[Rfam]
RNA sequence: AUCAUUGAACAGCCGAAUUCCCGGCACCGGGGAAACGGGGGAUCCAGUAUGGGUGAAUUGAUCUCGCUUCAGAGGGAUCAUAGGGGACCUUCAACCGAAUCCUUAAGCUAACCUCGCAGGCAUUGGAAGGGAUUUGA
Numbered sequence: 001a002u003c004a005u006u007g008a009a010c011a012g013c014c015g016a017a018u019u020c021c022c023g024g025c026a027c028c029g030g031g032g033a034a035a036c037g038g039g040g041g042a043u044c045c046a047g048u049a050u051g052g053g054u055g056a057a058u059u060g061a062u063c064u065c066g067c068u069u070c071a072g073a074g075g076g077a078u079c080a081u082a083g084g085g086g087a088c089c090u091u092c093a094a095c096c097g098a099a100u101c102c103u104u105a106a107g108c109u110a111a112c113c114u115c116g117c118a119g120g121c122a123u124u125g126g127a128a129g130g131g132a133u134u135u136g137a
Stems, first nucleotide, its partner, number of pairs: 012121003018034005036116005051102003059080007083096002
Dot-bracket structure: ...........(((...(((((.......))))).(((((..........(((.....(((((((........)))))))..((..........))...))).........)))))..)))................
The family of this 137-nucleotide sequence from Paenibacillus anaericanus is "c-di-AMP riboswitch aptamer (ydaO/yuaA leader)". The organism belongs to Paenibacillus, within Bacteria.